[Rfam]
RNA sequence: UUGAGAUAAGGGCAAAAUCGUCGAAAGACGAUGGCGCAAAGCCAAGGGUCUAAAGCCGUAAGGCCAUGACAGCCGGUUGCCGCA
Dot-bracket structure: ...........((...((((((....))))))...))..((((..(((((....(((....)))...)))..))))))......
c-di-GMP-I riboswitch aptamer: an 84-nucleotide RNA from Acidihalobacter aeolianus. Taxonomically the source falls in Acidihalobacter (Bacteria, Pseudomonadota, Gammaproteobacteria, Ectothiorhodospiraceae).